[Rfam]
RNA sequence: CGAGCCGGGCGGACGGCCGCGUGAGGAUCCCUCGGGACCUCCCGAGGAACGUCCGGGCUCCACAGGGCAGGGUGGUGGCUAACGGCCACCCGGGGUGACCCGCGGGACAGUGCCACAGAAAACAGACCGCCCGGGACUCCGGUCCCGGGUAAGGGUGAAACGGUGGUGUAAGAGACCACCAGCGCCUGAGGUGACUCAGGCGGCUAGGUAAACCCCACCCGGAGCAAGGUCAAAAGGAGGCGCCCCGGAAACGGGACGGCUCUGCGUGAACGUUCGAGGGCUGCUCGCCCGAGUUCACGGGUGGACCGCACGAGGCCGGCAGCAAUGCCGGCCCUAGAUGGAUGGCCGUCUCCCCGGCCGCCGCGAGGCGACCGGGAGACAGAACCCGGCGUACAGCCCGACUCGUCUG
Numbered sequence: 001c002g003a004g005c006c007g008g009g010c011g012g013a014c015g016g017c018c019g020c021g022u023g024a025g026g027a028u029c030c031c032u033c034g035g036g037a038c039c040u041c042c043c044g045a046g047g048a049a050c051g052u053c054c055g056g057g058c059u060c061c062a063c064a065g066g067g068c069a070g071g072g073u074g075g076u077g078g079c080u081a082a083c084g085g086c087c088a089c090c091c092g093g094g095g096u097g098a099c100c101c102g103c104g105g106g107a108c109a110g111u112g113c114c115a116c117a118g119a120a121a122a123c124a125g126a127c128c129g130c131c132c133g134g135g136a137c138u139c140c141g142g143u144c145c146c147g148g149g150u151a152a153g154g155g156u157g158a159a160a161c162g163g164u165g166g167u168g169u170a171a172g173a174g175a176c177c178a179c180c181a182g183c184g185c186c187u188g189a190g191g192u193g194a195c196u197c198a199g200g201c202g203g204c205u206a207g208g209u210a211a212a213c214c215c216c217a218c219c220c221g222g223a224g225c226a227a228g229g230u231c232a233a234a235a236g237g238a239g240g241c242g243c244c245c246c247g248g249a250a251a252c253g254g255g256a257c258g259g260c261u262c263u264g265c266g267u268g269a270a271c272g273u274u275c276g277a278g279g280g281c282u283g284c285u286c287g288c289c290c291g292a293g294u295u296c297a298c299g300g301g302u303g304g305a306c307c308g309c310a311c312g313a314g315g316c317c318g319g320c321a322g323c324a325a326u327g328c329c330g331g332c333c334c335u336a337g338a339u340g341g342a343u344g345g346c347c348g349u350c351u352c353c354c355c356g357g358c359c360g361c362c363g364c365g366a367g368g369c370g371a372c373c374g375g376g377a378g379a380c381a382g383a384a385c386c387c388g389g390c391g392u393a394c395a396g397c398c399c400g401a402c403u404c405g406u407c408u409g
Stems, first nucleotide, its partner, number of pairs: 001405004006400005011394001012350007020044002023041004028036001049392003053389005058224004065286004070220005075089005090104001091102004105215002110213002112209003127154002129150009162180006182204001183202008228307004266298006278290004314333008
The family of this 409-nucleotide RNA from Streptomyces griseus is "Bacterial RNase P class A". The organism belongs to Streptomyces griseus subsp. griseus, within Bacteria. Rfam's curators put it in the seed alignment.